[Rfam]
RNA sequence: AGAGCAUUGGUGAUGUUACAUCCAUCUAAACUCAUCCUUGCACUAUGAGGUCAACGGUGAAGAAAAAAUUGGGGGAAUAUGUAGUCUGAGAUGCUC
Number, nucleotide and partner (000 for none) at each position: 001a000002g096003a095004g094005c093006a092007u091008u090009g000010g000011u000012g000013a000014u000015g000016u000017u000018a000019c000020a000021u000022c000023c000024a000025u000026c000027u000028a000029a000030a000031c000032u000033c000034a000035u000036c000037c000038u000039u000040g000041c000042a000043c000044u000045a000046u000047g000048a000049g000050g000051u000052c000053a000054a000055c000056g000057g000058u000059g000060a000061a000062g000063a000064a000065a000066a000067a000068a000069u000070u000071g000072g000073g000074g000075g000076a000077a000078u000079a000080u000081g000082u000083a000084g000085u000086c000087u000088g000089a000090g008091a007092u006093g005094c004095u003096c002
The record is a 96-nucleotide RNA sequence from Oryza sativa, which matches "Small nucleolar RNA snoR26" in Rfam.
The family has 8 seed sequences and 611 matches in Rfam 15.1.
The family's RNA type in Rfam is C/D-box small nucleolar RNA.
Pairs were carried over by alignment from the consensus structure, which was predicted with WAR.